[Rfam]
Nucleotides: 386
Stems, first nucleotide, its partner, number of pairs: 004386003007382001008326007016034006039380003043377005048240005053070006076235003080231001081102006103127001104125009128230002131170004139161004146155003176228002178224003193212008244260003264295007296311006328365002333360004
Number, partner (000 for none) and nucleotide at each position: 001000g002000c003000a004386u005385u006384c007382a008326g009325g010324u011323g012322a013321c014320c015000g016034c017033u018032g019031c020030a021029c022000g023000c024000u025000u026000g027000u028000c029021g030020u031019g032018u033017a034016g035000a036000g037000g038000a039380a040379a041378g042000u043377c044376c045375a046374u047373g048240c049239u050238c051237g052236c053070a054069c055068g056067g057066g058065c059000u060000g061000a062000g063000a064000u065058g066057c067056u068055c069054g070053u071000a072000g073000u074000g075000u076235u077234c078233g079000u080231g081102c082101c083100u084099a085098g086097c087000c088000a089000a090000u091000u092000c093000a094000u095000a096000a097086g098085c099084u100083a101082g102081g103127g104125u105124a106123g107122u108121c109120u110119g111118g112117u113000u114000u115000u116000g117112a118111c119110u120109g121108g122107g123106c124105u125104a126000a127103c128230g129229g130000c131170a132169a133168g134167g135000u136000a137000a138000g139161c140160a141159c142158c143000u144000a145000a146155g147154u148153c149000g150000a151000u152000u153148g154147a155146u156000a157000u158142g159141g160140u161139g162000u163000g164000a165000g166000g167134c168133c169132u170131u171000u172000g173000a174000a175000a176228g177227u178224g179223c180222c181000a182000c183000a184000g185000u186000g187000a188000c189000g190000u191000a192000g193212u194211c195210c196209g197208u198207u199206u200205g201000g202000a203000a204000a205200c206199a207198a208197a209196c210195g211194g212193a213000g214000u215000g216000g217000a218000a219000c220000g221000c222180g223179g224178u225000a226000a227177a228176c229129c230128c231080c232000u233078c234077g235076a236052g237051c238050g239049a240048g241000a242000a243000a244260c245259c246258c247000a248000a249000a250000a251000c252000a253000u254000g255000g256000u257000a258246g259245g260244g261000g262000c263000a264295u265294c266293u267292u268291c269290u270289u271000a272000a273000c274000u275000g276000g277000a278000a279000a280000u281000g282000a283000a284000c285000a286000g287000g288000u289270g290269a291268g292267a293266a294265g295264a296311a297310c298309a299308a300307g301306g302000g303000u304000a305000u306301c307300c308299u309298u310297g311296u312000a313000g314000a315000u316000a317000g318000a319000u320014g321013g322012u323011u324010a325009c326008c327000a328365c329364u330000g331000g332000a333360g334359u335358a336357c337000g338000a339000g340000g341000c342000u343000c344000a345000u346000c347000a348000c349000c350000g351000u352000u353000u354000g355000c356000a357336g358335u359334a360333c361000a362000a363000a364329g365328g366000u367000a368000c369000a370000g371000a372000a373047c374046a375045u376044g377043g378041c379040u380039u381000a382007u383000c384006g385005a386004a
A member of the RNA family "Bacterial RNase P class B" from Halalkalibacter nanhaiisediminis, 386 nucleotides long. The match comes from Rfam's covariance-model search (327 bits). The source organism's lineage runs through Bacteria, Bacillati, Bacillota, Bacilli and Halalkalibacter. The family's RNA type in Rfam is ribozyme. The family is grouped with related families in Rfam's "RNaseP clan". Ribonuclease P (RNase P) is a ubiquitous endoribonuclease, found in archaea, bacteria and eukarya as well as chloroplasts and mitochondria. Its best characterised activity is the generation of mature 5'-ends of tRNAs by cleaving the 5'-leader elements of precursor-tRNAs. Cellular RNase Ps are ribonucleoproteins.